The record is a 159-nucleotide sequence from Vibrio coralliilyticus, which matches "DABA-DC-AT RNA" in Rfam. By type it is a cis-regulatory element. The organism belongs to Vibrio coralliilyticus, within Bacteria. Rfam's curators put it in the seed alignment.
[Rfam]
RNA sequence: GCAAUCUCGGAGGUGAGUCGCAAAAAGACAUUCUGGGGGAUACGCGUAGUGAGCAUUCAGGCUGAGUGAACACUCCGUAGGGUAGGUAUCGGCAAGUCCUUUUGUCGAUAGACGGGAUACUGUUGUCGCUGUAGCGGCAUGUUUAUAGGAAACCCAACA
Numbered sequence: 001g002c003a004a005u006c007u008c009g010g011a012g013g014u015g016a017g018u019c020g021c022a023a024a025a026a027g028a029c030a031u032u033c034u035g036g037g038g039g040a041u042a043c044g045c046g047u048a049g050u051g052a053g054c055a056u057u058c059a060g061g062c063u064g065a066g067u068g069a070a071c072a073c074u075c076c077g078u079a080g081g082g083u084a085g086g087u088a089u090c091g092g093c094a095a096g097u098c099c100u101u102u103u104g105u106c107g108a109u110a111g112a113c114g115g116g117a118u119a120c121u122g123u124u125g126u127c128g129c130u131g132u133a134g135c136g137g138c139a140u141g142u143u144u145a146u147a148g149g150a151a152a153c154c155c156a157a158c159a
Stems, first nucleotide, its partner, number of pairs: 006037006044078003048074004054068002087110010124139006